Overview: Rfam assigns this 77-nucleotide RNA from Caenorhabditis remanei to the family "Caenorhabditis snoRNA ceN89". A reference for the family is Jia et al. (2007), "Systematic identification of non-coding RNA 2,2,7-trimethylguanosine cap structures in Caenorhabditis elegans", BMC Mol Biol. Pairs were carried over by alignment from the consensus structure. Gene Ontology terms of the family: RNA processing and nucleolus.
Nucleotides: 077
Stems, first nucleotide, its partner, number of pairs: 001077004
Number, partner (000 for none) and nucleotide at each position: 001077g002076c003075g004074c005000u006000a007000u008000g009000a010000g011000g012000a013000a014000g015000a016000a017000c018000a019000a020000c021000a022000c023000a024000u025000a026000c027000a028000c029000a030000c031000a032000c033000u034000c035000c036000g037000a038000c039000u040000a041000c042000c043000c044000a045000u046000g047000a048000g049000g050000a051000g052000a053000u054000a055000a056000u057000u058000a059000a060000g061000a062000a063000c064000g065000g066000a067000u068000a069000u070000c071000u072000g073000a074004g075003c076002g077001c